Rfam assigns this 62-nucleotide RNA sequence from Peribacillus saganii to the family "Bacillaceae-1 RNA". It scores 48 bits against the family's covariance model. NCBI's taxonomy places the organism under Bacteria, Bacilli, Caryophanales, Bacillaceae, Peribacillus.
[Rfam]
RNA sequence: UUCAGAGGAAGAACGGCUUAAUUCGCCACUUCCUGUGGCAACGCCGUUCUGACCCACAUCCU
Numbered sequence: 001u002u003c004a005g006a007g008g009a010a011g012a013a014c015g016g017c018u019u020a021a022u023u024c025g026c027c028a029c030u031u032c033c034u035g036u037g038g039c040a041a042c043g044c045c046g047u048u049c050u051g052a053c054c055c056a057c058a059u060c061c062u
Base pairs, nucleotide, nucleotide: 011049012048013047014046015045016044017043025039026038027037028036029035